[Rfam]
RNA sequence: GCAGCCCCCCGUGCGGCGUUAUCUCGCCCAACUCCCCCAGGGCCGGAAGGCAGCAAGGGUAAGUGAGCUCUGUCGGGUGCGCGGGGGGCCCUUCC
Numbered sequence: 001g002c003a004g005c006c007c008c009c010c011g012u013g014c015g016g017c018g019u020u021a022u023c024u025c026g027c028c029c030a031a032c033u034c035c036c037c038c039a040g041g042g043c044c045g046g047a048a049g050g051c052a053g054c055a056a057g058g059g060u061a062a063g064u065g066a067g068c069u070c071u072g073u074c075g076g077g078u079g080c081g082c083g084g085g086g087g088g089c090c091c092u093u094c095c
Base pairs, nucleotide, nucleotide: 004089005088006087007086008085009084010083011082012081013080014077017075018074020072021071023067024066025065026064027063034059035058036057042051043050044049
The record is a 95-nucleotide RNA from Desertihabitans brevis, which matches "Bacterial small signal recognition particle RNA" in Rfam. For this family Rfam cites "SRPDB: Signal Recognition Particle Database" (Rosenblad et al., Nucleic Acids Res, 2003). Gene Ontology terms of the family: SRP-dependent cotranslational protein targeting to membrane, signal sequence recognition and signal recognition particle, plasma membrane targeting. The base pairs follow the family's consensus structure, which is taken from published work. By type it is a non-coding RNA gene. The signal recognition particle (SRP) is a universally conserved ribonucleoprotein involved in the co-translational targeting of proteins to membranes. The family is grouped with related families in Rfam's "SRP clan". The match comes from Rfam's covariance-model search (61 bits).